[Rfam]
RNA: Vault RNA
Organism: Chrysemys picta
RNA sequence: GGGCCGGCUUUAGCUCAGCGGUUCCUUCGCGACUUCAAUUCAUUGAAAACCCAGCCCCUCCGGGGGUUCGAUACCCGCGGGCGCUGUCUGGCCUUUUG
Numbered sequence: 001g002g003g004c005c006g007g008c009u010u011u012a013g014c015u016c017a018g019c020g021g022u023u024c025c026u027u028c029g030c031g032a033c034u035u036c037a038a039u040u041c042a043u044u045g046a047a048a049a050c051c052c053a054g055c056c057c058c059u060c061c062g063g064g065g066g067u068u069c070g071a072u073a074c075c076c077g078c079g080g081g082c083g084c085u086g087u088c089u090g091g092c093c094u095u096u097u098g
Stems, first nucleotide, its partner, number of pairs: 002093006013082004018078004027071003